A member of the RNA family "mir-26 microRNA precursor family" from Anolis carolinensis, 81 nucleotides long.

[Rfam]
RNA sequence: CUGUGGCCAGUUUCAAGUAAUCCAGGAUAGGCUGUGGGUACUGAUGUCAGCCUGUUCUUGAUUACUUGGCCUUGGAGGCAG
Numbered sequence: 001c002u003g004u005g006g007c008c009a010g011u012u013u014c015a016a017g018u019a020a021u022c023c024a025g026g027a028u029a030g031g032c033u034g035u036g037g038g039u040a041c042u043g044a045u046g047u048c049a050g051c052c053u054g055u056u057c058u059u060g061a062u063u064a065c066u067u068g069g070c071c072u073u074g075g076a077g078g079c080a081g
Stems, first nucleotide, its partner, number of pairs: 002080003007075004014068009024058010
For this family Rfam cites "Identification of novel genes coding for small expressed RNAs" (Lagos-Quintana et al., Science, 2001). Rfam 15.1 lists 2,251 matches to the family in 645 species. Lineage of the source: Eukaryota > Deuterostomia > Vertebrata > Squamata > Anolis. It is one of the family's seed sequences.